Description: Shown here is a 102-nucleotide sequence from Rossellomorea vietnamensis, a member of the family "Purine riboswitch aptamer". Lineage of the source: Bacteria > Bacillati > Bacillota > Bacilli > Rossellomorea.
RNA sequence: GACAAAUAAACCGAAUGCCCUCAUAUAAUAAUGGGAAUAUGGCCCAUGAGUCUCUACCUGACUACCGUAAAUGGUCGGACUAUGAGGGAAAGUAGCUGUCUG
Numbered sequence: 001g002a003c004a005a006a007u008a009a010a011c012c013g014a015a016u017g018c019c020c021u022c023a024u025a026u027a028a029u030a031a032u033g034g035g036a037a038u039a040u041g042g043c044c045c046a047u048g049a050g051u052c053u054c055u056a057c058c059u060g061a062c063u064a065c066c067g068u069a070a071a072u073g074g075u076c077g078g079a080c081u082a083u084g085a086g087g088g089a090a091a092g093u094a095g096c097u098g099u100c101u102g
Stems, first nucleotide, its partner, number of pairs: 018088008029049001031047005058078007